[Rfam]
RNA sequence: CCUCGAAAAUGGCACAUCUAUUGAAAGAUAGGGUCGCAAAGAGUUAAAUCUAAGGCAAGAUCUUUGAUUUUGUUAUGAUUGUUAACUUGUCGAA
Numbered sequence: 001c002c003u004c005g006a007a008a009a010u011g012g013c014a015c016a017u018c019u020a021u022u023g024a025a026a027g028a029u030a031g032g033g034u035c036g037c038a039a040a041g042a043g044u045u046a047a048a049u050c051u052a053a054g055g056c057a058a059g060a061u062c063u064u065u066g067a068u069u070u071u072g073u074u075a076u077g078a079u080u081g082u083u084a085a086c087u088u089g090u091c092g093a094a
Stems, first nucleotide, its partner, number of pairs: 012037002017032006040088002045084003048079003055073007
Rfam assigns this 94-nucleotide RNA sequence from Selenihalanaerobacter shriftii to the family "c-di-GMP-I riboswitch aptamer". Its Rfam clan is "c-di-GMP_I riboswitch clan".